RNA sequence: AAAGUAGCCUAUGCCACUGCCAUGGACUGGUUUAUAGCAGUGUGUUAUGCAUUU
Dot-bracket structure: (((...((.((.((((((((.(((((....))))).)))))).)))).)).)))
Numbered sequence: 001a002a003a004g005u006a007g008c009c010u011a012u013g014c015c016a017c018u019g020c021c022a023u024g025g026a027c028u029g030g031u032u033u034a035u036a037g038c039a040g041u042g043u044g045u046u047a048u049g050c051a052u053u054u
Stems, first nucleotide, its partner, number of pairs: 001054003007050002010047002013045002015042006022035005
Background:
A member of the RNA family "Editing element of GABA-3 exon 9", 54 nucleotides long. It is annotated as a cis-regulatory element. The family's consensus secondary structure is taken from published work.